[Rfam]
RNA: U4atac minor spliceosomal RNA
RNA sequence: GCCAACCUUUUCUUGUGGUUGUACUACUUACUGUCCAAUAAACUUGUAAGGAGGACAGUUGCCUACACAACACACUCACACCAACUAGAGCUCUGCUUUAUGUUGGUGCAAUUUUUGGAAAA
Number, nucleotide and partner (000 for none) at each position: 001g000002c000003c000004a000005a019006c018007c017008u000009u015010u000011u000012c000013u000014u000015g009016u000017g007018g006019u005020u000021g066022u065023a064024c000025u000026a000027c000028u000029u000030a059031c058032u057033g056034u055035c054036c053037a000038a000039u000040a000041a000042a000043c000044u000045u000046g000047u000048a000049a000050g000051g000052a000053g036054g035055a034056c033057a032058g031059u030060u000061g000062c000063c000064u023065a022066c021067a000068c000069a000070a000071c000072a000073c000074a000075c000076u000077c000078a000079c108080a107081c106082c105083a104084a000085c000086u100087a099088g098089a097090g096091c095092u000093c000094u000095g091096c090097u089098u088099u087100a086101u000102g000103u000104u083105g082106g081107u080108g079109c000110a000111a000112u000113u000114u000115u000116u000117g000118g000119a000120a000121a000122a000